Overview: A member of the RNA family "Bacterial small signal recognition particle RNA" from Xenorhabdus bovienii, 97 nucleotides long. The match comes from Rfam's covariance-model search (66 bits). Rfam classes the family as a non-coding RNA gene.
[Rfam]
RNA sequence: UGUUGGUUCUCCCGCAACGCUAACUUGUUAACUUGGUCAGAUCUGGAAAGAAGCAGCCAUAGCAGGGGAUGUGUGUGCCGGGAUGUCGCUGGCAGAG
Numbered sequence: 001u002g003u004u005g006g007u008u009c010u011c012c013c014g015c016a017a018c019g020c021u022a023a024c025u026u027g028u029u030a031a032c033u034u035g036g037u038c039a040g041a042u043c044u045g046g047a048a049a050g051a052a053g054c055a056g057c058c059a060u061a062g063c064a065g066g067g068g069a070u071g072u073g074u075g076u077g078c079c080g081g082g083a084u085g086u087c088g089c090u091g092g093c094a095g096a097g
Base pairs, nucleotide, nucleotide: 004091005090006089007088010083011082012081013080014079015075017074018073019072020071024066025065026064027063028062029061034059035058036057037056042051043050044049